[Rfam]
RNA: Fluoride riboswitch aptamer (crcB RNA motif)
RNA sequence: UGGAGCACAGGCGAUGGAGCUCGCCUUGAACCGCUUCGGCUGAUGGCUCCUGCACCGGA
Numbered sequence: 001u002g003g004a005g006c007a008c009a010g011g012c013g014a015u016g017g018a019g020c021u022c023g024c025c026u027u028g029a030a031c032c033g034c035u036u037c038g039g040c041u042g043a044u045g046g047c048u049c050c051u052g053c054a055c056c057g058g059a
Base pairs, nucleotide, nucleotide: 010025011024012023013022016050017049018048019047020046021045033040034039